Notes: Shown here is a 57-nucleotide sequence from Solanum lycopersicum, a member of the family "Plastid-ndhJ 3UTR RNA". Rfam 15.1 lists 869 matches to the family in 155 species. The match comes from Rfam's covariance-model search (59 bits). A reference for the family is Richter et al. (2023), "Retrograde signaling in plants: A critical review focusing on the GUN pathway and beyond", Plant Commun. Plastid ndhJ is a non-coding RNA (ncRNA) present in plastids.
RNA sequence: UCAUGAACUUUGUACUGCACACAUUACUUAGACGGGUGCUAAAAGGUCAUAUAGGAA
Number, nucleotide and partner (000 for none) at each position: 001u000002c000003a000004u000005g000006a000007a000008c000009u000010u000011u000012g000013u000014a000015c000016u000017g000018c000019a037020c036021a000022c034023a000024u032025u031026a000027c000028u000029u000030a000031g025032a024033c000034g022035g000036g020037u019038g000039c000040u000041a000042a000043a000044a000045g000046g000047u000048c000049a000050u000051a000052u000053a000054g000055g000056a000057a000